RNA sequence: AAAGCAGAUCGCCUUAUCGCACAGACUACAACGUUUGUGAGGAAAGUCCGAACACCAAAGUGCAGCAUAGUGGUUAACGGCCACCGGCCGCGAGGUCAGGAAAAGUGCAACAGAAAGUAUGUACAGGUAAUGCUGUAGUGAAACCAGGUAAACUCUAUGCGGUGCAAUGCCAUGUAAACCAACGCUUAGGGUUGCACGCCCAAUGUUGGAGGGUAGGCAGCUAAAGGUUGCUGGUAACAGUAAUCUCAGAUAAAUGAUAAGGGUUGAAGCAUUUAUGUUUCGAUACAGAAUUCGGCUUAUAGAUCUGCUUUUUUU
Numbered sequence: 001a002a003a004g005c006a007g008a009u010c011g012c013c014u015u016a017u018c019g020c021a022c023a024g025a026c027u028a029c030a031a032c033g034u035u036u037g038u039g040a041g042g043a044a045a046g047u048c049c050g051a052a053c054a055c056c057a058a059a060g061u062g063c064a065g066c067a068u069a070g071u072g073g074u075u076a077a078c079g080g081c082c083a084c085c086g087g088c089c090g091c092g093a094g095g096u097c098a099g100g101a102a103a104a105g106u107g108c109a110a111c112a113g114a115a116a117g118u119a120u121g122u123a124c125a126g127g128u129a130a131u132g133c134u135g136u137a138g139u140g141a142a143a144c145c146a147g148g149u150a151a152a153c154u155c156u157a158u159g160c161g162g163u164g165c166a167a168u169g170c171c172a173u174g175u176a177a178a179c180c181a182a183c184g185c186u187u188a189g190g191g192u193u194g195c196a197c198g199c200c201c202a203a204u205g206u207u208g209g210a211g212g213g214u215a216g217g218c219a220g221c222u223a224a225a226g227g228u229u230g231c232u233g234g235u236a237a238c239a240g241u242a243a244u245c246u247c248a249g250a251u252a253a254a255u256g257a258u259a260a261g262g263g264u265u266g267a268a269g270c271a272u273u274u275a276u277g278u279u280u281c282g283a284u285a286c287a288g289a290a291u292u293c294g295g296c297u298u299a300u301a302g303a304u305c306u307g308c309u310u311u312u313u314u315u
Base pairs, nucleotide, nucleotide: 001311002310003309004308005307006306007305008304009303010302011300012262013261014260015259016258017257018256020039021038022037023036024035025034026033044298045297046296048295049294050293051292052291053164054163055162056161060197061196062195063194065160066159067158068157069156070084071083072082073081074080085099086097087096088095089094100155101154105153106152107149108148122137123136124135125134126133168219169218170217171216179209180208181207182206183205189201190200191199192198226245227244228243229242230241231240232239233238
The family of this 315-nucleotide RNA sequence from Flavobacteriaceae bacterium MAR_2010_188 is "Bacterial RNase P class A".
Gene Ontology terms of the family: tRNA processing, dimeric ribonuclease P complex and ribonuclease P activity.
A search with the family's covariance model found it, with a score of 211 bits.